[Rfam]
RNA sequence: CGCGCGGGACGACCCGUGCCUAUGAAACGUUCCGGGGACGGCCCC
Numbered sequence: 001c002g003c004g005c006g007g008g009a010c011g012a013c014c015c016g017u018g019c020c021u022a023u024g025a026a027a028c029g030u031u032c033c034g035g036g037g038a039c040g041g042c043c044c045c
Base pairs, nucleotide, nucleotide: 002019003018004017005016006015007014008013034045035044036043037042
Shown here is a 45-nucleotide sequence from Agrobacterium sp. AGB01, a member of the family "Guanidine-II riboswitch aptamer (mini-ykkC)". Taxonomically the source falls in Agrobacterium (Bacteria, Pseudomonadota, Hyphomicrobiales, Rhizobiaceae). The family's consensus secondary structure is taken from published work. Gene Ontology term of the family: regulation of gene expression.